The family of this 96-nucleotide sequence from Fusibacter sp. A1 is "SAM riboswitch aptamer (S box leader)". Gene Ontology term of the family: regulation of gene expression.

[Rfam]
RNA sequence: UACUUAUCAAGAGCGACUGAGGGACAGGCCCUAUGAAGUCCGGCAACCUGGCGAUGCCAAGGUGCUAAAUCCUGCGGUGAAACCGACAGAUAAGCU
Numbered sequence: 001u002a003c004u005u006a007u008c009a010a011g012a013g014c015g016a017c018u019g020a021g022g023g024a025c026a027g028g029c030c031c032u033a034u035g036a037a038g039u040c041c042g043g044c045a046a047c048c049u050g051g052c053g054a055u056g057c058c059a060a061g062g063u064g065c066u067a068a069a070u071c072c073u074g075c076g077g078u079g080a081a082a083c084c085g086a087c088a089g090a091u092a093a094g095c096u
Base pairs, nucleotide, nucleotide: 003094004093005092006091007090008089013041015040016039017038021031022030023029025074026073027072028071042066043065044064045063047062048061049059050058051057052056070088075085076084077083078082

Record summary:
The base pairs follow the family's consensus structure, which is taken from published work. Taxonomically the source falls in Fusibacter (Bacteria, Bacillati, Eubacteriales, Fusibacteraceae).